[Rfam]
Description:
The family of this 528-nucleotide part of an RNA from Candidatus Mancarchaeum acidiphilum is "Archaeal large subunit ribosomal RNA".
RNA sequence: UAAAAGAUACACCACCUAGAGGAUGGCUUGGCUGCAAUAACCAUGAAGGCCGUGGCAAGCUGCGAUAAGCUUUGGAUAGUCGCAAGUCAGACGUUGAACCAAAGAUUGCCGAAUGGUGUAAGCUGCUUUAAAACAGCUUACAUGUACACGCAGGGAAUUGAAAUAUCUUAGUACCUGCAGGAAAAGAAAGCGAAAGCGAUAUAGUUAGUAACACGAGUGAAAGCUAUAGAGGGCAUCCUGAAUCUGUUUUUGUAAAAAGGCAGAGAUGUGGGGUAGCGUUGAUCCCAAAUAUGAGCCGAACACUUUGAAAAGAGCGACCAUAGAGAGUGAUAGUCUCGUAGGUUAAGUACGAGGGACUUGCUACAUUAGAGUAAUUCCGGUUGAUUAAUCGGAGUGAAUAUGGGGGCAUUAAACCCUAACCCUAAAUAUUGAUUGCAGACCGAUAGCGAACAAGUAGCGUGAGCGAAAGCUGAAAAGAACCCGCGCGUGCGGGAGUGAAAUAGAUCUGAAACUAGGUGGUAACACGAA
Numbered sequence: 001u002a003a004a005a006g007a008u009a010c011a012c013c014a015c016c017u018a019g020a021g022g023a024u025g026g027c028u029u030g031g032c033u034g035c036a037a038u039a040a041c042c043a044u045g046a047a048g049g050c051c052g053u054g055g056c057a058a059g060c061u062g063c064g065a066u067a068a069g070c071u072u073u074g075g076a077u078a079g080u081c082g083c084a085a086g087u088c089a090g091a092c093g094u095u096g097a098a099c100c101a102a103a104g105a106u107u108g109c110c111g112a113a114u115g116g117u118g119u120a121a122g123c124u125g126c127u128u129u130a131a132a133a134c135a136g137c138u139u140a141c142a143u144g145u146a147c148a149c150g151c152a153g154g155g156a157a158u159u160g161a162a163a164u165a166u167c168u169u170a171g172u173a174c175c176u177g178c179a180g181g182a183a184a185a186g187a188a189a190g191c192g193a194a195a196g197c198g199a200u201a202u203a204g205u206u207a208g209u210a211a212c213a214c215g216a217g218u219g220a221a222a223g224c225u226a227u228a229g230a231g232g233g234c235a236u237c238c239u240g241a242a243u244c245u246g247u248u249u250u251u252g253u254a255a256a257a258a259g260g261c262a263g264a265g266a267u268g269u270g271g272g273g274u275a276g277c278g279u280u281g282a283u284c285c286c287a288a289a290u291a292u293g294a295g296c297c298g299a300a301c302a303c304u305u306u307g308a309a310a311a312g313a314g315c316g317a318c319c320a321u322a323g324a325g326a327g328u329g330a331u332a333g334u335c336u337c338g339u340a341g342g343u344u345a346a347g348u349a350c351g352a353g354g355g356a357c358u359u360g361c362u363a364c365a366u367u368a369g370a371g372u373a374a375u376u377c378c379g380g381u382u383g384a385u386u387a388a389u390c391g392g393a394g395u396g397a398a399u400a401u402g403g404g405g406g407c408a409u410u411a412a413a414c415c416c417u418a419a420c421c422c423u424a425a426a427u428a429u430u431g432a433u434u435g436c437a438g439a440c441c442g443a444u445a446g447c448g449a450a451c452a453a454g455u456a457g458c459g460u461g462a463g464c465g466a467a468a469g470c471u472g473a474a475a476a477g478a479a480c481c482c483g484c485g486c487g488u489g490c491g492g493g494a495g496u497g498a499a500a501u502a503g504a505u506c507u508g509a510a511a512c513u514a515g516g517u518g519g520u521a522a523c524a525c526g527a528a
Base pairs, nucleotide, nucleotide: 011520012519013518014517015516016515017514018513019512025506026470027469030441031440032438033437034436035435036434037433038431039430048110049109050108051064052063053062070104071103072102073101074100075099079092080091081090115124116123117122149180150178151177152176153175154174160167161166190197191196201227202226203225204224205223211218212217230423231422232421233420238271239270240269248259249258250257251256281357283355284354295343296342297341301316303314304313305312319323325337326336327335374395375394376393377392378391379390380389402417403416404415405414457464458463

Source information
Lineage of the source: Archaea > Nanobdellati > Microcaldota > Candidatus Mancarchaeum.